[Rfam]
RNA sequence: AACCGUAGAAGCACAUACCGGGCUAGGAACUGGUGUGUGUGGAGGUUUACAAAGGUAAGGGGUUUACCAUAGCCUAGCUAGGUGAAAACCGAAAGAAAAUCCCACAA
Numbered sequence: 001a002a003c004c005g006u007a008g009a010a011g012c013a014c015a016u017a018c019c020g021g022g023c024u025a026g027g028a029a030c031u032g033g034u035g036u037g038u039g040u041g042g043a044g045g046u047u048u049a050c051a052a053a054g055g056u057a058a059g060g061g062g063u064u065u066a067c068c069a070u071a072g073c074c075u076a077g078c079u080a081g082g083u084g085a086a087a088a089c090c091g092a093a094a095g096a097a098a099a100u101c102c103c104a105c106a107a
Stems, first nucleotide, its partner, number of pairs: 001047004011040011023077004060103003081090003
Dot-bracket structure: ((((......(((((((((((.[[[[...)))))))))))...))))............(((...........]]]]...(((....)))..........)))....
RNA: drum RNA